[Rfam]
RNA: Small nucleolar RNA R12
Nucleotides: 077
Base pairs, nucleotide, nucleotide: 001077002076003075004074005073
Number, partner (000 for none) and nucleotide at each position: 001077a002076u003075g004074g005073c006000g007000a008000u009000g010000a011000u012000g013000a014000a015000g016000g017000a018000g019000a020000u021000c022000g023000g024000c025000c026000u027000g028000a029000u030000u031000u032000c033000c034000a035000u036000u037000g038000a039000a040000c041000u042000u043000u044000u045000u046000a047000a048000g049000u050000u051000g052000u053000u054000u055000c056000a057000g058000c059000g060000c061000c062000a063000g064000u065000u066000a067000u068000u069000c070000c071000g072000a073005g074004c075003c076002a077001u